[Rfam]
RNA sequence: AGCCGGGGCUUUGUCUUGACGGUGUACAAGAACCUCUUUACUAUUUUGUACCCCGAAAAUUGGCAGGGCGCAUGCUCUGUCAUUUCGUUUGUGUGUCGUAAGACAAUCAGUGGAGCUAUAGA
Numbered sequence: 001a002g003c004c005g006g007g008g009c010u011u012u013g014u015c016u017u018g019a020c021g022g023u024g025u026a027c028a029a030g031a032a033c034c035u036c037u038u039u040a041c042u043a044u045u046u047u048g049u050a051c052c053c054c055g056a057a058a059a060u061u062g063g064c065a066g067g068g069c070g071c072a073u074g075c076u077c078u079g080u081c082a083u084u085u086c087g088u089u090u091g092u093g094u095g096u097c098g099u100a101a102g103a104c105a106a107u108c109a110g111u112g113g114a115g116c117u118a119u120a121g122a
Stems, first nucleotide, its partner, number of pairs: 004018006022053001024051001026049006035040001061082009093116002095104003
Rfam assigns this 122-nucleotide RNA sequence from Pseudomonas aeruginosa to the family "Pseudomonas rpsL leader". The sequence is in the family's curated seed alignment. On this family, see Naville and Gautheret, Genome Biol 2010: "Premature terminator analysis sheds light on a hidden world of bacterial transcriptional attenuation".